[Rfam]
RNA: Cyano-1 RNA
RNA sequence: AAUUGUGUGAGGAGUAAUACGAACAAAAAAGCUCUUGGGGUCGAAACACGGCAAGACUCCCAAGAGCUUUUUUCACAA
Dot-bracket structure: ........................(((((..((...((((((............))).)))...))..))))).....